[Rfam]
RNA sequence: UUGUCGCAGAAUAAGUUAUUCUGUGGCCAUUUUGAGUUACGAUAAUUACUAUACUAAUUUACGAGAUUAUGACAACUCUCUUAUAAGUGAUUUACUAUAACAUUAUGGUAAAUAUCAUCUUGAAUUAUAGUAACUCAUGUAUCGUAAAUGUGUAUUGUUAUUAUCGUAAAUUGAUACAAACAUUAUCGUAAAACAAGGUGGCUAUAGAAUAAGUUAUUCUGUGGCCA
Numbered sequence: 001u002u003g004u005c006g007c008a009g010a011a012u013a014a015g016u017u018a019u020u021c022u023g024u025g026g027c028c029a030u031u032u033u034g035a036g037u038u039a040c041g042a043u044a045a046u047u048a049c050u051a052u053a054c055u056a057a058u059u060u061a062c063g064a065g066a067u068u069a070u071g072a073c074a075a076c077u078c079u080c081u082u083a084u085a086a087g088u089g090a091u092u093u094a095c096u097a098u099a100a101c102a103u104u105a106u107g108g109u110a111a112a113u114a115u116c117a118u119c120u121u122g123a124a125u126u127a128u129a130g131u132a133a134c135u136c137a138u139g140u141a142u143c144g145u146a147a148a149u150g151u152g153u154a155u156u157g158u159u160a161u162u163a164u165c166g167u168a169a170a171u172u173g174a175u176a177c178a179a180a181c182a183u184u185a186u187c188g189u190a191a192a193a194c195a196a197g198g199u200g201g202c203u204a205u206a207g208a209a210u211a212a213g214u215u216a217u218u219c220u221g222u223g224g225c226c227a
Base pairs, nucleotide, nucleotide: 001227003225004224005223006222007221008220009219010218011217012216013215014214016212017211018210019209020208021207022206023205024204025203026202027201028200029199030198031197032196033195037191038190039189040188041187042186043185044184045183046182050178052176053175055173056172057171058170059169060168061167062166065165066164067163069161070160071159074155079148081146087142088141089140092137093132094131095130096129097128098127099126100125103122108116
The record is a 227-nucleotide sequence from Miscanthus lutarioriparius, which matches "MIR6217 microRNA precursor family" in Rfam. The family's consensus secondary structure was predicted with RNAalifold. NCBI's taxonomy places the organism under Eukaryota, Streptophyta, Embryophyta, Saccharinae, Miscanthus. The match comes from Rfam's covariance-model search (139 bits).